[Rfam]
Overview: c-di-GMP-II-GAG riboswitch aptamer: a 117-nucleotide RNA sequence. The family is grouped with related families in Rfam's "c-di-GMP_II riboswitch clan". For this family Rfam cites "Bioinformatic analysis of riboswitch structures uncovers variant classes with altered ligand specificity" (Weinberg et al., Proc Natl Acad Sci U S A, 2017). Gene Ontology terms of the family: regulation of gene expression and cyclic-di-GMP binding.
RNA sequence: GCAGAGUGACGACGUGAUGAUCCGCAUGGUCCUCACCGACACCCUUCAUCGGGUGCACGGAGACGACCGGUCGCCAGACCGUGCGGGGAGCGAGUGGCGAGACCGCCGUCCACCGGC
Numbered sequence: 001g002c003a004g005a006g007u008g009a010c011g012a013c014g015u016g017a018u019g020a021u022c023c024g025c026a027u028g029g030u031c032c033u034c035a036c037c038g039a040c041a042c043c044c045u046u047c048a049u050c051g052g053g054u055g056c057a058c059g060g061a062g063a064c065g066a067c068c069g070g071u072c073g074c075c076a077g078a079c080c081g082u083g084c085g086g087g088g089a090g091c092g093a094g095u096g097g098c099g100a101g102a103c104c105g106c107c108g109u110c111c112a113c114c115g116g117c
Stems, first nucleotide, its partner, number of pairs: 001117002004114001008110004013092003022086008069104002071100005